[Rfam]
RNA sequence: ACGUGGUCAACAGUCGGUUUUCACCUUGAUCUGAGAGCUAUCUGAAUGCUAUCUGAGAUCAUCGUGAAAGCUAGUUGUUGUUUCACA
Numbered sequence: 001a002c003g004u005g006g007u008c009a010a011c012a013g014u015c016g017g018u019u020u021u022c023a024c025c026u027u028g029a030u031c032u033g034a035g036a037g038c039u040a041u042c043u044g045a046a047u048g049c050u051a052u053c054u055g056a057g058a059u060c061a062u063c064g065u066g067a068a069a070g071c072u073a074g075u076u077g078u079u080g081u082u083u084c085a086c087a
Base pairs, nucleotide, nucleotide: 009079010078011077012076016072017071018070019069020068021067022066023065024064027061028060029059030058031057032056034054035053036052037049038048
Dot-bracket structure: ........((((...(((((((((..((((((.(((((.........))..))).))))))..)))))))))...))))........
The record is an 87-nucleotide sequence from Caenorhabditis brenneri, which matches "mir-81 microRNA precursor family" in Rfam. Gene Ontology terms of the family: RISC complex and miRNA-mediated post-transcriptional gene silencing. Taxonomically the source falls in Caenorhabditis (Eukaryota, Opisthokonta, Chromadorea, Rhabditidae). Its Rfam clan is "mir-81 clan". The family's consensus secondary structure was predicted with RNAalifold. Rfam 15.1 lists 68 matches to the family in 54 species. A search with the family's covariance model found it, with a score of 86 bits.